[Rfam]
RNA sequence: GCCUCUGAGGAUGAUGAGUAUUGAACUUUCCGAGAUUUUUCAUGCGGAAAAUUUUUUGGAGACCUGAACUGAAGAGGC
Numbered sequence: 001g002c003c004u005c006u007g008a009g010g011a012u013g014a015u016g017a018g019u020a021u022u023g024a025a026c027u028u029u030c031c032g033a034g035a036u037u038u039u040u041c042a043u044g045c046g047g048a049a050a051a052u053u054u055u056u057u058g059g060a061g062a063c064c065u066g067a068a069c070u071g072a073a074g075a076g077g078c
Stems, first nucleotide, its partner, number of pairs: 003076004
A member of the RNA family "Small nucleolar RNA Z159/U59" from Jatropha curcas, 78 nucleotides long. Its family is annotated with RNA processing and nucleolus in the Gene Ontology. Its Rfam clan is "SNORD59 clan". Lineage of the source: Eukaryota > eudicotyledons > rosids > Jatropheae > Jatropha. The base pairs follow the family's consensus structure, which was predicted with PFOLD. The family's RNA type in Rfam is C/D-box small nucleolar RNA. A reference for the family is Chen et al. (2003), "The high diversity of snoRNAs in plants: identification and comparative study of 120 snoRNA genes from Oryza sativa", Nucleic Acids Res. A search with the family's covariance model found it, with a score of 51 bits. The family has 10 seed sequences and 1,401 matches in Rfam 15.1.